[Rfam]
RNA sequence: UGCCCGGAACGGCGUAAAACUACCAACGCAAGGGAAGCAACCCCGUAAAAAGCGUA
Number, nucleotide and partner (000 for none) at each position: 001u014002g013003c012004c011005c000006g024007g023008a000009a021010c000011g004012g003013c002014g001015u000016a000017a000018a000019a000020c000021u009022a000023c007024c006025a000026a000027c000028g000029c000030a000031a000032g044033g043034g042035a000036a000037g000038c000039a000040a000041c000042c034043c033044c032045g000046u000047a000048a000049a000050a000051a000052g000053c000054g000055u000056a000
The family of this 56-nucleotide RNA sequence is "GP20-b RNA".